[Rfam]
RNA sequence: UGCCGAAAUUUUCCACGGUAGUUAACUUCAGCCGGUUCCAUAAUUCGACAGUUAACUGUCGAGGGGUAU
Numbered sequence: 001u002g003c004c005g006a007a008a009u010u011u012u013c014c015a016c017g018g019u020a021g022u023u024a025a026c027u028u029c030a031g032c033c034g035g036u037u038c039c040a041u042a043a044u045u046c047g048a049c050a051g052u053u054a055a056c057u058g059u060c061g062a063g064g065g066g067u068a069u
Stems, first nucleotide, its partner, number of pairs: 012065002016061012

Notes
MIR2629 microRNA precursor family: a 69-nucleotide RNA sequence from Medicago truncatula. Its family is annotated with miRNA-mediated post-transcriptional gene silencing and RISC complex in the Gene Ontology. The family's consensus secondary structure was predicted with RNAalifold.